[Rfam]
RNA sequence: GUGGCUUCACUUUGUGACAUUGUUGCUUACACUCUAUUGAUGUUUGUUUGGCACUGGCUGAAGUGAAGCUAGAGAAUUGUUCCUCUCGCUAUCCAGUGUUCCUCCUUGUUGUGGCGCAUUUGGACGUUGGGGAACUACGGCU
Numbered sequence: 001g002u003g004g005c006u007u008c009a010c011u012u013u014g015u016g017a018c019a020u021u022g023u024u025g026c027u028u029a030c031a032c033u034c035u036a037u038u039g040a041u042g043u044u045u046g047u048u049u050g051g052c053a054c055u056g057g058c059u060g061a062a063g064u065g066a067a068g069c070u071a072g073a074g075a076a077u078u079g080u081u082c083c084u085c086u087c088g089c090u091a092u093c094c095a096g097u098g099u100u101c102c103u104c105c106u107u108g109u110u111g112u113g114g115c116g117c118a119u120u121u122g123g124a125c126g127u128u129g130g131g132g133a134a135c136u137a138c139g140g141c142u
Stems, first nucleotide, its partner, number of pairs: 002071004008065006016058001022055001024053004029048001031047002079135007087126002092124005101114002